RNA sequence: CAUACUAAUUACAUACGCACUCAUAUAAUAGCAGGGAUAUGGCCUGCGAGUUUCUACCAGAUUACCAGUGUGGUUCGCCACCGAAAUAAUCUGACUAUGAGUGGGAAACAAGCGCCC
Dot-bracket structure: .................((((((((...(.(((((.......))))).)........(((((((......................)))))))..))))))))..............
RNA: Purine riboswitch aptamer